[Rfam]
RNA: MIR4371 microRNA precursor family
Organism: Glycine max
RNA sequence: UCAUUAAGUGAUGACGUAACAGAUAGAGUGUUAUAUCAUCACACCUAAUCACUGACACAUCAUUGUCACAUCAUUGAAGGUGAUGACAUGUAAUGACGUGUCAGUAAUAAGGCGUGAUGACAUGGCACUUCGUUUGUCACAUCAUCACUUAACAGGA
Dot-bracket structure: (..(((((((((((.((.((((((.(((((((((.(((((((.(((.((.((.(((((............((((........))))...........))))).)).)).))).))))))).))))))))).)))))).)).)))))))))))..)..